[Rfam]
RNA sequence: ACCGCACAUCCAGAGUUGGGGCGACGCCCAACGCCAACCUGCCGUUCCGGGCAAGGUGGUACUCCCCGAAAGGGAGGAUGUGGCCGAACCGGCAAUUAUACGGAUGAAG
Numbered sequence: 001a002c003c004g005c006a007c008a009u010c011c012a013g014a015g016u017u018g019g020g021g022c023g024a025c026g027c028c029c030a031a032c033g034c035c036a037a038c039c040u041g042c043c044g045u046u047c048c049g050g051g052c053a054a055g056g057u058g059g060u061a062c063u064c065c066c067c068g069a070a071a072g073g074g075a076g077g078a079u080g081u082g083g084c085c086g087a088a089c090c091g092g093c094a095a096u097u098a099u100a101c102g103g104a105u106g107a108a109g
Stems, first nucleotide, its partner, number of pairs: 006081005015032006033060003038056003041052003046104004083093004
Dot-bracket structure: .....(((((....((((((......))))))(((..((((((..[[[[))).))).)))................))))).((((...)))).......]]]].....
The family of this 109-nucleotide RNA sequence from Brucella suis is "SAM-I/IV (S-adenosyl methionine) riboswitch aptamer". The organism belongs to Brucella suis, within Bacteria.